The family of this 70-nucleotide RNA is "Small nucleolar RNA U61". It is one of the family's seed sequences.
RNA sequence: GAGCUAUGACGAAAAAAACUGUGCUGGAGCUCGUCGAUGAUGGCGCAAUCCUCUAAGAAGUUCUGAGCUU
Numbered sequence: 001g002a003g004c005u006a007u008g009a010c011g012a013a014a015a016a017a018a019c020u021g022u023g024c025u026g027g028a029g030c031u032c033g034u035c036g037a038u039g040a041u042g043g044c045g046c047a048a049u050c051c052u053c054u055a056a057g058a059a060g061u062u063c064u065g066a067g068c069u070u
Stems, first nucleotide, its partner, number of pairs: 001070004